Bacterial RNase P class B: a 387-nucleotide RNA sequence from Bacillus sp. MUM 13. The family's RNA type in Rfam is ribozyme. Rfam's curators write: Ribonuclease P (RNase P) is a ubiquitous endoribonuclease, found in archaea, bacteria and eukarya as well as chloroplasts and mitochondria. Its best characterised activity is the generation of mature 5'-ends of tRNAs by cleaving the 5'-leader elements of precursor-tRNAs. Taxonomically the source falls in Bacillus (Bacteria, Bacillati, Bacillota, Bacillaceae).
RNA sequence: ACGUUCGGGUAAUUGCUGCAGCAUUCAAUGCUGUAGAGGAAAGUCCAUGCUCGCACAGGCUGAGAUGCCUGUAGUGUUCGUGCCUGGUGAAAAAAUAAGCCAGGGCAGCAGGCAACUGCUGACGGCCGGGAAAAUGCCUAAGUUCCUUGGAAUAUGGCAUGAAUACCUAUAAAAGUGCCACAGUGACGUAGCCUUUCCAGAAAUGGAAAGGGUGGAACGAGGUAAACCCCACGAGCGAGAAACCCAAAUUAUGGUAGGGGCGCUUUCUUUCUUGGAAAUGAACGAGGAGAAGGACAGAAGCGCAUGUUUCUGUAGAUAGAUGAUUACCGCCGAAGUACGAGACGAAGGUCGCUUGCAGUACUGAGGAACAAAACAUGGCUUACAGAA
Number, nucleotide and partner (000 for none) at each position: 001a000002c000003g000004u387005u386006c385007g383008g328009g327010u326011a325012a324013u323014u322015g000016c036017u035018g034019c033020a032021g031022c000023a000024u000025u000026c000027a000028a000029u000030g000031c021032u020033g019034u018035a017036g016037a000038g000039g000040a000041a381042a380043g379044u000045c378046c377047a376048u375049g374050c239051u238052c237053g236054c235055a072056c071057a070058g069059g068060c067061u000062g000063a000064g000065a000066u000067g060068c059069c058070u057071g056072u055073a000074g000075u000076g000077u000078u234079c233080g232081u231082g230083c104084c103085u102086g101087g100088u099089g000090a000091a000092a000093a000094a000095a000096u000097a000098a000099g088100c087101c086102a085103g084104g083105g123106c121107a120108g119109c118110a117111g116112g000113c000114a000115a000116c111117u110118g109119c108120u107121g106122a000123c105124g229125g228126c000127c000128g168129g167130g166131a000132a000133a000134a000135u159136g158137c157138c156139u000140a000141a000142g153143u152144u151145c000146c000147u000148u000149g000150g000151a144152a143153u142154a000155u000156g138157g137158c136159a135160u000161g000162a000163a000164u000165a000166c130167c129168u128169a000170u000171a000172a000173a000174a000175g227176u226177g223178c222179c221180a000181c000182a000183g000184u000185g000186a000187c000188g000189u000190a000191g000192c211193c210194u209195u208196u207197c206198c205199a204200g000201a000202a000203a000204u199205g198206g197207a196208a195209a194210g193211g192212g000213u000214g000215g000216a000217a000218c000219g000220a000221g179222g178223u177224a000225a000226a176227c175228c125229c124230c082231a081232c080233g079234a078235g054236c053237g052238a051239g050240a000241a000242a000243c259244c258245c257246a000247a000248a000249u000250u000251a000252u000253g000254g000255u000256a000257g245258g244259g243260g000261c000262g000263c293264u292265u291266u290267c289268u288269u287270u000271c000272u000273u000274g000275g000276a000277a000278a000279u000280g000281a000282a000283c000284g000285a000286g000287g269288a268289g267290a266291a265292g264293g263294a313295c312296a311297g310298a309299a308300g307301c306302g000303c000304a000305u000306g301307u300308u299309u298310c297311u296312g295313u294314a000315g000316a000317u000318a000319g000320a000321u000322g014323a013324u012325u011326a010327c009328c008329g000330c366331c365332g000333a000334a362335g361336u360337a359338c358339g000340a000341g000342a000343c000344g000345a000346a000347g000348g000349u000350c000351g000352c000353u000354u000355g000356c000357a000358g338359u337360a336361c335362u334363g000364a000365g331366g330367a000368a000369c000370a000371a000372a000373a000374c049375a048376u047377g046378g045379c043380u042381u041382a000383c007384a000385g006386a005387a004